[Rfam]
RNA sequence: GACUUAACCACAAAUCUAAUCAAAACGCAAAUUUUGUGUUUAAAUGGUUAGUCCAGCCCACUUUCUUCAAGUAAACGUUAUUUUAGUCACAAUACGUCGGAAUGCUCCGCCAGUUCCGACCUCUAUUGUUCGGCAUUAAACAGGCAAAGAGAUUUGAAAAGCUAGUGUGCCGAACGUAAAAAGCUUCAAUAACCGGGCGAGGCCAACUUUAC
Numbered sequence: 001g002a003c004u005u006a007a008c009c010a011c012a013a014a015u016c017u018a019a020u021c022a023a024a025a026c027g028c029a030a031a032u033u034u035u036g037u038g039u040u041u042a043a044a045u046g047g048u049u050a051g052u053c054c055a056g057c058c059c060a061c062u063u064u065c066u067u068c069a070a071g072u073a074a075a076c077g078u079u080a081u082u083u084u085a086g087u088c089a090c091a092a093u094a095c096g097u098c099g100g101a102a103u104g105c106u107c108c109g110c111c112a113g114u115u116c117c118g119a120c121c122u123c124u125a126u127u128g129u130u131c132g133g134c135a136u137u138a139a140a141c142a143g144g145c146a147a148a149g150a151g152a153u154u155u156g157a158a159a160a161g162c163u164a165g166u167g168u169g170c171c172g173a174a175c176g177u178a179a180a181a182a183g184c185u186u187c188a189a190u191a192a193c194c195g196g197g198c199g200a201g202g203c204c205a206a207c208u209u210u211a212c
Stems, first nucleotide, its partner, number of pairs: 001053003006049005011038002013035002017030001039044001056198004062074002065071001077193006085185003092126002096120008104208001106206001109203003128175009140166002143163003

The record is a 212-nucleotide RNA sequence from Okeania hirsuta, which matches "HNH endonuclease-associated RNA and ORF (HEARO) RNA" in Rfam. It is annotated as a non-coding RNA gene. Taxonomically the source falls in Okeania (Bacteria, Cyanobacteriota, Oscillatoriophycideae, Oscillatoriales). On this family, see Weinberg et al., Nature 2009: "Exceptional structured noncoding RNAs revealed by bacterial metagenome analysis". The family's consensus secondary structure is taken from published work.